[Rfam]
RNA sequence: AAAACAAAGCAGAGGCUUACCCGCUUCUCACCUGCCGCCAAAGGCUCAGCAGGUUAAAUACAAACAAUCGUUUGGUUAUUAUUGCGGGUAGCGUAUGCUGCCCGCUUUUUUUAUAAAAC
Dot-bracket structure: ..........((((((......)))))).(((..(.(.(....)..).)..))).............................(((((((((....)))))))))..............